[Rfam]
RNA sequence: UGAGUUUUCCUUGCUUGUCUCUCGGGGUCACAAACGAGCUCCUGGUAGCUCUCAUAAUAUGAUCACACCCUGGGUAAAGUCCCCGGGCCUAGGAUAGAAAGUAUCAAGGCGUAAACGAGAAAAGUAUUUGUUCGCCGGACAACGGUUGCGCAAAUAUUAUAUAUACGCCUAUAUUUCGCGGUAUUUCGCCAUGCGUACUCCAAUGAAGAGAGACCCGCUCCAAGGGACUCGAAUUGUUGCGCUCGGUUGACUGCGGAAAUGUGCCAGAGAUAUUUAAGAUAUGGACGAGUGGGCGGGGGAAGAGGGGGGCGUAUCACAACGCCUAUCCUCCUCCCCCGUCUACACGGAAUGGGGCUUACGUAGGGAAAUUC
Numbered sequence: 001u002g003a004g005u006u007u008u009c010c011u012u013g014c015u016u017g018u019c020u021c022u023c024g025g026g027g028u029c030a031c032a033a034a035c036g037a038g039c040u041c042c043u044g045g046u047a048g049c050u051c052u053c054a055u056a057a058u059a060u061g062a063u064c065a066c067a068c069c070c071u072g073g074g075u076a077a078a079g080u081c082c083c084c085g086g087g088c089c090u091a092g093g094a095u096a097g098a099a100a101g102u103a104u105c106a107a108g109g110c111g112u113a114a115a116c117g118a119g120a121a122a123a124g125u126a127u128u129u130g131u132u133c134g135c136c137g138g139a140c141a142a143c144g145g146u147u148g149c150g151c152a153a154a155u156a157u158u159a160u161a162u163a164u165a166c167g168c169c170u171a172u173a174u175u176u177c178g179c180g181g182u183a184u185u186u187c188g189c190c191a192u193g194c195g196u197a198c199u200c201c202a203a204u205g206a207a208g209a210g211a212g213a214c215c216c217g218c219u220c221c222a223a224g225g226g227a228c229u230c231g232a233a234u235u236g237u238u239g240c241g242c243u244c245g246g247u248u249g250a251c252u253g254c255g256g257a258a259a260u261g262u263g264c265c266a267g268a269g270a271u272a273u274u275u276a277a278g279a280u281a282u283g284g285a286c287g288a289g290u291g292g293g294c295g296g297g298g299g300a301a302g303a304g305g306g307g308g309g310c311g312u313a314u315c316a317c318a319a320c321g322c323c324u325a326u327c328c329u330c331c332u333c334c335c336c337c338g339u340c341u342a343c344a345c346g347g348a349a350u351g352g353g354g355c356u357u358a359c360g361u362a363g364g365g366a367a368a369u370u371c
Base pairs, nucleotide, nucleotide: 002371003370004369005368006367007366008365009364010363011362014289015288016287017286018285019284022073023072024071025070026069027068028067036051037050038049039048040047077357078356079355081354082353083352084351093105094104095103096102184250185249189246190245195240196239201236202235203234204233291341292340293339294338295337296336297335298334299333300332
This 371-nucleotide sequence from Drosophila grimshawi belongs to the Rfam family "RNase MRP". For this family Rfam cites "Secondary structure probing of the human RNase MRP RNA reveals the potential for MRP RNA subsets" (Walker and Avis, Biochem Biophys Res Commun, 2005).